Nucleotides: 081
Stems, first nucleotide, its partner, number of pairs: 001081005
Number, partner (000 for none) and nucleotide at each position: 001081u002080g003079c004078u005077c006000a007000a008000u009000g010000a011000u012000u013000g014000a015000a016000c017000c018000a019000u020000g021000u022000u023000a024000a025000u026000c027000a028000u029000g030000g031000u032000a033000a034000u035000a036000u037000a038000c039000g040000c041000u042000a043000u044000u045000c046000u047000g048000a049000g050000c051000c052000a053000c054000u055000u056000g057000a058000g059000g060000a061000u062000g063000c064000a065000u066000a067000a068000g069000c070000u071000u072000u073000a074000u075000g076000a077005g078004a079003g080002c081001a